[Rfam]
RNA sequence: CCCAUAAGUAAUAAAAAGUCCAUUUAGGUCCCUUAACUUUAUUUAAAGUAUCAGUUUGGUCCUUUCUGUUAAUUUAAUUUAAAAAAACGUUAAAUUUUGGUCCAUUAACUUAUUUAAUUAGUAUUAGUUUGGUCCCUAAACUUAACGUUUUUUUGAAUUAAAUUAAGAGAAAGGACCUAACGGAUACUUUAAAUAAAGUUAAGGGACCUAAACGGACUUUUUAUUACUUAUAGGA
Number, nucleotide and partner (000 for none) at each position: 001c000002c233003c000004a231005u230006a229007a228008g227009u000010a000011a000012u000013a000014a000015a000016a000017a000018g000019u000020c000021c000022a000023u212024u211025u210026a000027g208028g207029u206030c000031c204032c203033u202034u201035a200036a199037c198038u197039u196040u195041a194042u193043u192044u000045a190046a189047a188048g000049u000050a000051u000052c000053a000054g000055u000056u000057u000058g000059g000060u000061c000062c000063u000064u000065u000066c000067u000068g000069u000070u000071a000072a000073u000074u000075u000076a000077a000078u000079u000080u000081a000082a000083a000084a000085a000086a000087a000088c000089g000090u000091u000092a000093a000094a000095u000096u000097u000098u000099g000100g000101u000102c000103c000104a000105u000106u000107a000108a000109c000110u000111u000112a000113u000114u000115u000116a000117a000118u000119u000120a000121g000122u000123a000124u000125u000126a000127g000128u000129u000130u000131g000132g000133u000134c000135c000136c000137u000138a000139a000140a000141c000142u000143u000144a000145a000146c000147g000148u000149u000150u000151u000152u000153u000154u000155g000156a000157a000158u000159u000160a000161a000162a000163u000164u000165a000166a000167g000168a000169g000170a000171a000172a000173g000174g000175a000176c000177c000178u000179a000180a000181c000182g000183g000184a000185u000186a000187c000188u047189u046190u045191a000192a043193a042194u041195a040196a039197a038198g037199u036200u035201a034202a033203g032204g031205g000206a029207c028208c027209u000210a025211a024212a023213c000214g000215g000216a000217c000218u000219u000220u000221u000222u000223a000224u000225u000226a000227c008228u007229u006230a005231u004232a000233g002234g000235a000
Shown here is a 235-nucleotide sequence from Medicago truncatula, a member of the family "MIR2655 microRNA precursor family". Rfam links the family to the GO terms miRNA-mediated post-transcriptional gene silencing and RISC complex.